[Rfam]
RNA sequence: CCCGGGGCUCGCGCCCCGGGCUAUUCACGGUCGCCCCUCCGGGGCU
Numbered sequence: 001c002c003c004g005g006g007g008c009u010c011g012c013g014c015c016c017c018g019g020g021c022u023a024u025u026c027a028c029g030g031u032c033g034c035c036c037c038u039c040c041g042g043g044g045c046u
Base pairs, nucleotide, nucleotide: 001020002019003018004017005016006015007014008013033045034044035043036042037041